[Rfam]
RNA sequence: UAUCCGUGGUGUAGACAAUCUCUUUGGUAUUCCCUAAAUCUUUCCCAAGUAUCUAAAAGAUCUUCAUCUUCUUUUUGUUUAAAAGUUCUUAUCUUGUUCCUUAAGAGA
Numbered sequence: 001u002a003u004c005c006g007u008g009g010u011g012u013a014g015a016c017a018a019u020c021u022c023u024u025u026g027g028u029a030u031u032c033c034c035u036a037a038a039u040c041u042u043u044c045c046c047a048a049g050u051a052u053c054u055a056a057a058a059g060a061u062c063u064u065c066a067u068c069u070u071c072u073u074u075u076u077g078u079u080u081a082a083a084a085g086u087u088c089u090u091a092u093c094u095u096g097u098u099c100c101u102u103a104a105g106a107g108a
Base pairs, nucleotide, nucleotide: 001108003106004105006102057074058073